[Rfam]
RNA sequence: UUAUAAACAAAUUUCUACUUUUUAGAUUCAUUCAAUAAAUGAUGCAUGUGGUCUAGAUUGUAGAUCACAUGCAUCAUUUAUUGAAUGAACCUAAAAAGUCAAAAUUUGCUUAUAA
Number, nucleotide and partner (000 for none) at each position: 001u000002u114003a113004u112005a111006a110007a000008c000009a107010a106011a105012u104013u103014u000015c000016u000017a099018c098019u097020u096021u095022u094023u093024a092025g091026a000027u089028u088029c087030a086031u085032u084033c083034a082035a081036u080037a079038a078039a077040u076041g075042a074043u073044g072045c000046a000047u000048g000049u067050g066051g065052u064053c000054u000055a000056g000057a000058u000059u000060g000061u000062a000063g000064a052065u051066c050067a049068c000069a000070u000071g000072c044073a043074u042075c041076a040077u039078u038079u037080a036081u035082u034083g033084a032085a031086u030087g029088a028089a027090c000091c025092u024093a023094a022095a021096a020097a019098g018099u017100c000101a000102a000103a013104a012105u011106u010107u009108g000109c000110u006111u005112a004113u003114a002115a000

Rfam assigns this 115-nucleotide RNA from Medicago truncatula to the family "MIR2593 microRNA precursor family". The family has 7 seed sequences and 1,262 matches in Rfam 15.1. It scores 101 bits against the family's covariance model.